[Rfam]
RNA: Human immunodeficiency virus type 1 dimerisation initiation site
Organism: Lentivirus simimdef
RNA sequence: GGACUCGGCUUACUGAGUGCACGCAGUAAGAGGCGAGGC
Numbered sequence: 001g002g003a004c005u006c007g008g009c010u011u012a013c014u015g016a017g018u019g020c021a022c023g024c025a026g027u028a029a030g031a032g033g034c035g036a037g038g039c
Base pairs, nucleotide, nucleotide: 004037005036006035007034009030010029011028012027013026014025015024